[Rfam]
RNA sequence: CACAAAACUCUUCGGAGUUGUAUUUAUUAGAUAAAAACCAACCUCGUCUUGGUGAUUCAUGAUAACUUGUCGAAGCGCAUGGCUUUUGCUGGCGCUGGUUCAUUCAAAUUUCUGCCCUAUCAACUUUCGAUGGUACGGUAGUGGCCUACCAUGGUAGCAACGGGUAACGGGGAAUUAGGGUUCGAUUCCGGAGAGGGAGCCUGAGAAACGGCUACCACAUCCAAGGAAGGCAGCAGGCGCGCAAAUUACCCAAUCCUGACACAGGGAGGUAGUGACAAUAAAUAACGAUACAGGGCCUUUGGUCUUGUAAUCGGAAUGAGAACAAUUUAAACCACUUAUCGAGGAACAAUUGGAGGGCAAGUCUGGUGCCAGCAGCCGCGGUAAUUCCAGCUCCAAUAGCGUAUGUUAAAGUUGUUG
Numbered sequence: 001c002a003c004a005a006a007a008c009u010c011u012u013c014g015g016a017g018u019u020g021u022a023u024u025u026a027u028u029a030g031a032u033a034a035a036a037a038c039c040a041a042c043c044u045c046g047u048c049u050u051g052g053u054g055a056u057u058c059a060u061g062a063u064a065a066c067u068u069g070u071c072g073a074a075g076c077g078c079a080u081g082g083c084u085u086u087u088g089c090u091g092g093c094g095c096u097g098g099u100u101c102a103u104u105c106a107a108a109u110u111u112c113u114g115c116c117c118u119a120u121c122a123a124c125u126u127u128c129g130a131u132g133g134u135a136c137g138g139u140a141g142u143g144g145c146c147u148a149c150c151a152u153g154g155u156a157g158c159a160a161c162g163g164g165u166a167a168c169g170g171g172g173a174a175u176u177a178g179g180g181u182u183c184g185a186u187u188c189c190g191g192a193g194a195g196g197g198a199g200c201c202u203g204a205g206a207a208a209c210g211g212c213u214a215c216c217a218c219a220u221c222c223a224a225g226g227a228a229g230g231c232a233g234c235a236g237g238c239g240c241g242c243a244a245a246u247u248a249c250c251c252a253a254u255c256c257u258g259a260c261a262c263a264g265g266g267a268g269g270u271a272g273u274g275a276c277a278a279u280a281a282a283u284a285a286c287g288a289u290a291c292a293g294g295g296c297c298u299u300u301g302g303u304c305u306u307g308u309a310a311u312c313g314g315a316a317u318g319a320g321a322a323c324a325a326u327u328u329a330a331a332c333c334a335c336u337u338a339u340c341g342a343g344g345a346a347c348a349a350u351u352g353g354a355g356g357g358c359a360a361g362u363c364u365g366g367u368g369c370c371a372g373c374a375g376c377c378g379c380g381g382u383a384a385u386u387c388c389a390g391c392u393c394c395a396a397u398a399g400c401g402u403a404u405g406u407u408a409a410a411g412u413u414g415u416u417g
Base pairs, nucleotide, nucleotide: 008193009192010191017115018114020112022110024108027107028106035100036099038097039069046063047062048061050059051058052057116164117163118162123155124154125153130152131151132150133149134148135147137145168190169189170188171187172183173182174181175180195216196215198213199212200211218229220227221226246271248270249269250268254266255265256264257263258262296344297343298342299341350396351395352394353393354392355391363390364389365388366387372379373378